[Rfam]
RNA sequence: GCAGACUUACUCUGCACCUGACUGCAACUUUCAGUCCCUGUGCUUUUUCAGUCUGCUAGAUAAAUGAUCCAUGAUCACAUUAGUAGCUUACUUUUUCUAUAGAUAAGUGAUUGUGACAUGGAA
Numbered sequence: 001g002c003a004g005a006c007u008u009a010c011u012c013u014g015c016a017c018c019u020g021a022c023u024g025c026a027a028c029u030u031u032c033a034g035u036c037c038c039u040g041u042g043c044u045u046u047u048u049c050a051g052u053c054u055g056c057u058a059g060a061u062a063a064a065u066g067a068u069c070c071a072u073g074a075u076c077a078c079a080u081u082a083g084u085a086g087c088u089u090a091c092u093u094u095u096u097c098u099a100u101a102g103a104u105a106a107g108u109g110a111u112u113g114u115g116a117c118a119u120g121g122a123a
Stems, first nucleotide, its partner, number of pairs: 001056006014043004020037001022034003068122006076115004084109002088105001

A member of the RNA family "Small nucleolar RNA SNORA77" from Geotrypetes seraphini, 123 nucleotides long. Rfam classes the family as an H/ACA-box small nucleolar RNA. About the family: ACA63 (SNORA77) is a member of the H/ACA class of snoRNAs that guide the sites of modification of uridines to pseudouridines. This snoRNA was identified by computational screening and its expression in mouse experimentally verified by Northern blot and primer extension analysis. ACA63 is proposed to guide the pseudouridylation of 18S rRNA U814. A search with the family's covariance model found it, with a score of 53 bits.